[Rfam]
RNA sequence: UGUGUUAAAGGCAAACCACUCGAAAGGGUGGGGCGCAAAGCCAUGGGUCUGCAGCCCUAAAGGGUAUGACUGCCAGGCUGCCGCGA
Numbered sequence: 001u002g003u004g005u006u007a008a009a010g011g012c013a014a015a016c017c018a019c020u021c022g023a024a025a026g027g028g029u030g031g032g033g034c035g036c037a038a039a040g041c042c043a044u045g046g047g048u049c050u051g052c053a054g055c056c057c058u059a060a061a062g063g064g065u066a067u068g069a070c071u072g073c074c075a076g077g078c079u080g081c082c083g084c085g086a
Base pairs, nucleotide, nucleotide: 001086003083004082011036012035016031017030018029019028020027021026034072039079040078041077042076044075045074046073047070048069049068

This 86-nucleotide RNA sequence from Desulfofundulus salinus belongs to the Rfam family "c-di-GMP-I-GGC riboswitch aptamer". Pairs were carried over by alignment from the consensus structure, which is taken from published work. The match comes from Rfam's covariance-model search (73 bits).